[Rfam]
This 474-nucleotide RNA from a Syntrophaceae bacterium belongs to the Rfam family "Bacterial RNase P class A".
Rfam links the family to the GO terms dimeric ribonuclease P complex, tRNA processing and ribonuclease P activity.
The organism belongs to Syntrophaceae, within Bacteria.
It is annotated as a ribozyme.
RNA sequence: GGAAGGGGAAGAGAUGGCCGCUCCUCGUCAUUGCCCGUAAGGGGAGAUGAUCGGGGGGAGGAAAGUCCGAGCUCCGCAGGGCAGGGUGGUCCGUAACGCGGACGGUUCCAUCUCCAAAGAGAUGGGAUAAGGAAAGUGCCACAGAAAAAAUACCGUCCCGUGAAAUAUUAUUUCACGGGGUAAGGGUGAAAAGGCGAGGUAAGAGCUCACCAGUGCACUGAGCGAUCGGAGCAGCUUGGCAAACCCCACCCGGAGCAAGACCCAAUAGGUCCCGUUUCUCCCCGUGUAUACGGGGGAGAUAAGAAAAGCCCAUUCAAAUUUAUUCCCGAUGGAGACCCAUCGGGAGUAAAGGCGGGACGGGUAAGGUCGCUUGAGGCCCUGAGCAAUCAGGGUCCCAGAUAAAUGGCCAUCCUUCCGCUCCCGCCUGUCGGCGGGAGCAGAAUACAGAACUCGGCUUACAGUCCCCUUCGAUUC
Numbered sequence: 001g002g003a004a005g006g007g008g009a010a011g012a013g014a015u016g017g018c019c020g021c022u023c024c025u026c027g028u029c030a031u032u033g034c035c036c037g038u039a040a041g042g043g044g045a046g047a048u049g050a051u052c053g054g055g056g057g058g059a060g061g062a063a064a065g066u067c068c069g070a071g072c073u074c075c076g077c078a079g080g081g082c083a084g085g086g087u088g089g090u091c092c093g094u095a096a097c098g099c100g101g102a103c104g105g106u107u108c109c110a111u112c113u114c115c116a117a118a119g120a121g122a123u124g125g126g127a128u129a130a131g132g133a134a135a136g137u138g139c140c141a142c143a144g145a146a147a148a149a150a151u152a153c154c155g156u157c158c159c160g161u162g163a164a165a166u167a168u169u170a171u172u173u174c175a176c177g178g179g180g181u182a183a184g185g186g187u188g189a190a191a192a193g194g195c196g197a198g199g200u201a202a203g204a205g206c207u208c209a210c211c212a213g214u215g216c217a218c219u220g221a222g223c224g225a226u227c228g229g230a231g232c233a234g235c236u237u238g239g240c241a242a243a244c245c246c247c248a249c250c251c252g253g254a255g256c257a258a259g260a261c262c263c264a265a266u267a268g269g270u271c272c273c274g275u276u277u278c279u280c281c282c283c284g285u286g287u288a289u290a291c292g293g294g295g296g297a298g299a300u301a302a303g304a305a306a307a308g309c310c311c312a313u314u315c316a317a318a319u320u321u322a323u324u325c326c327c328g329a330u331g332g333a334g335a336c337c338c339a340u341c342g343g344g345a346g347u348a349a350a351g352g353c354g355g356g357a358c359g360g361g362u363a364a365g366g367u368c369g370c371u372u373g374a375g376g377c378c379c380u381g382a383g384c385a386a387u388c389a390g391g392g393u394c395c396c397a398g399a400u401a402a403a404u405g406g407c408c409a410u411c412c413u414u415c416c417g418c419u420c421c422c423g424c425c426u427g428u429c430g431g432c433g434g435g436a437g438c439a440g441a442a443u444a445c446a447g448a449a450c451u452c453g454g455c456u457u458a459c460a461g462u463c464c465c466c467u468u469c470g471a472u473u474c
Stems, first nucleotide, its partner, number of pairs: 002469008011459001013411007021058007063457003067454005072255004084251005089103005105128010131246002136244002138240003153185002155181011193211002196208003213235001214233003218229004259368004269358009375394008